[Rfam]
Description
Guanidine-I riboswitch aptamer: a 101-nucleotide RNA sequence from Sporomusa acidovorans. This family represents a conserved RNA structure found upstream of the ykkC and yxkD genes in Bacillus subtilis and related genes in other bacteria. The organism belongs to Sporomusa acidovorans, within Bacteria.
RNA sequence: GAGUUUGUUUUCUAGGGUUCCGCAGUUUAGAACUGGCAGGUCCGAGAGAAGACACACAGUGCAGUCCACUGUGUACACGGAAGGAUAAAAGCCUGGGAGAU
Numbered sequence: 001g002a003g004u005u006u007g008u009u010u011u012c013u014a015g016g017g018u019u020c021c022g023c024a025g026u027u028u029a030g031a032a033c034u035g036g037c038a039g040g041u042c043c044g045a046g047a048g049a050a051g052a053c054a055c056a057c058a059g060u061g062c063a064g065u066c067c068a069c070u071g072u073g074u075a076c077a078c079g080g081a082a083g084g085a086u087a088a089a090a091g092c093c094u095g096g097g098a099g100a101u
Stems, first nucleotide, its partner, number of pairs: 007053006015043002020040002022037001023035005054074008076096001078099001082094003